[Rfam]
Annotation
Rfam assigns this 34-nucleotide RNA from Lentilactobacillus parafarraginis to the family "L31-Firmicutes ribosomal protein leader". Pairs were carried over by alignment from the consensus structure, which is taken from published work. By type it is a cis-regulatory leader. The organism belongs to Lentilactobacillus parafarraginis, within Bacteria.

RNA sequence: CUCUGAGCCAUCACAUUGGCCCAGGGCAAAGGAG
Dot-bracket structure: (((((.(((........))).)))))........
Numbered sequence: 001c002u003c004u005g006a007g008c009c010a011u012c013a014c015a016u017u018g019g020c021c022c023a024g025g026g027c028a029a030a031g032g033a034g
Stems, first nucleotide, its partner, number of pairs: 001026005007020003
Its Rfam clan is "Ribosomal Protein L31 Leader clan".